[Rfam]
RNA sequence: AGAAAUAUUAUUCUCCGAAUUAUAAUUCCUAAGGCUUUUGCUAUGGGUUAUAAUCGAUGGGUAUUGUUGGAAACGGCAGUGCCUUCCGCGUUUGAAAAGGAGAAUUAAAUUUCUCCUU
Numbered sequence: 001a002g003a004a005a006u007a008u009u010a011u012u013c014u015c016c017g018a019a020u021u022a023u024a025a026u027u028c029c030u031a032a033g034g035c036u037u038u039u040g041c042u043a044u045g046g047g048u049u050a051u052a053a054u055c056g057a058u059g060g061g062u063a064u065u066g067u068u069g070g071a072a073a074c075g076g077c078a079g080u081g082c083c084u085u086c087c088g089c090g091u092u093u094g095a096a097a098a099g100g101a102g103a104a105u106u107a108a109a110u111u112u113c114u115c116c117u118u
Stems, first nucleotide, its partner, number of pairs: 003112002006109001011104006019054007027047003033042003059084011085095002
Notes: Shown here is a 118-nucleotide RNA from Caloramator sp. E03, a member of the family "Molybdenum/Tungsten riboswitch aptamer (Moco RNA motif)". NCBI's taxonomy places the organism under Bacteria, Bacillati, Eubacteriales, Clostridiaceae, Caloramator. The match comes from Rfam's covariance-model search (82 bits).